[Rfam]
RNA sequence: GUAAAUACGAAGAAGAAGAUACGUUCAUUAUGAGAGGAAAUGACAGAGAGCUAGUGGGUGGUGUGAACUAGUAUUUCCACAUAAUGAAAAGCACUUUUGAGUAGACAGCUCGAAAUAGAAGUAGGACUGUCCGUGAAUGCACGUUACGCAUAACUAAUGAAGGCUAUGGAAAUAGCGAAAAUUAGGGUGGUACCGCGAAAACUUUCGCCCCUUAC
Numbered sequence: 001g002u003a004a005a006u007a008c009g010a011a012g013a014a015g016a017a018g019a020u021a022c023g024u025u026c027a028u029u030a031u032g033a034g035a036g037g038a039a040a041u042g043a044c045a046g047a048g049a050g051c052u053a054g055u056g057g058g059u060g061g062u063g064u065g066a067a068c069u070a071g072u073a074u075u076u077c078c079a080c081a082u083a084a085u086g087a088a089a090a091g092c093a094c095u096u097u098u099g100a101g102u103a104g105a106c107a108g109c110u111c112g113a114a115a116u117a118g119a120a121g122u123a124g125g126a127c128u129g130u131c132c133g134u135g136a137a138u139g140c141a142c143g144u145u146a147c148g149c150a151u152a153a154c155u156a157a158u159g160a161a162g163g164c165u166a167u168g169g170a171a172a173u174a175g176c177g178a179a180a181a182u183u184a185g186g187g188u189g190g191u192a193c194c195g196c197g198a199a200a201a202c203u204u205u206c207g208c209c210c211c212u213u214a215c
Stems, first nucleotide, its partner, number of pairs: 007102002015097004026086006039075003050072006105130004110125002132143003163176005184212004195208005

The family of this 215-nucleotide RNA sequence from Pontibacillus marinus is "T-box leader". The organism belongs to Pontibacillus marinus, within Bacteria.